[Rfam]
RNA sequence: GGUUGGUCCGAGGCUUGUGGGUUAUUGUUAAACUGUUUAGCAUUGUCUCCCCCCACAACCACAUUUGACUAACUAAGCUUUU
Numbered sequence: 001g002g003u004u005g006g007u008c009c010g011a012g013g014c015u016u017g018u019g020g021g022u023u024a025u026u027g028u029u030a031a032a033c034u035g036u037u038u039a040g041c042a043u044u045g046u047c048u049c050c051c052c053c054c055a056c057a058a059c060c061a062c063a064u065u066u067g068a069c070u071a072a073c074u075a076a077g078c079u080u081u082u
Base pairs, nucleotide, nucleotide: 001074002073003072004071005070006069007068008067010066011065015061016057017056018055019054020053021052026042027041028040030038031037
Shown here is an 82-nucleotide RNA from Dasypus novemcinctus, a member of the family "Y RNA". It is one of the family's seed sequences.